A member of the RNA family "c-di-AMP riboswitch aptamer (ydaO/yuaA leader)" from Paenibacillus sp. oral taxon 786, 181 nucleotides long. NCBI's taxonomy places the organism under Bacteria, Bacilli, Paenibacillaceae, Paenibacillus, Paenibacillus sp. oral taxon 786.
RNA sequence: AAUACCUGAUCGCUGAGUUCUUUCUUUAUUUCAGAAAGAAACGGGGGAACCAAUGAAACGCGUCCAAAAGGGCGGGUUUCCGGGGUGAAUCGCUUGAUUUGGCCAACUUGGCCAAACUGCGUAGGGCUGCUUUCGUGCCCGAAUCCGUCAGCUAACUCCGUAAGCGUCCGAAAGAGGGAAU
Numbered sequence: 001a002a003u004a005c006c007u008g009a010u011c012g013c014u015g016a017g018u019u020c021u022u023u024c025u026u027u028a029u030u031u032c033a034g035a036a037a038g039a040a041a042c043g044g045g046g047g048a049a050c051c052a053a054u055g056a057a058a059c060g061c062g063u064c065c066a067a068a069a070g071g072g073c074g075g076g077u078u079u080c081c082g083g084g085g086u087g088a089a090u091c092g093c094u095u096g097a098u099u100u101g102g103c104c105a106a107c108u109u110g111g112c113c114a115a116a117c118u119g120c121g122u123a124g125g126g127c128u129g130c131u132u133u134c135g136u137g138c139c140c141g142a143a144u145c146c147g148u149c150a151g152c153u154a155a156c157u158c159c160g161u162a163a164g165c166g167u168c169c170g171a172a173a174g175a176g177g178g179a180a181u
Stems, first nucleotide, its partner, number of pairs: 011166004018040008041161006051082001083146003091121003124140004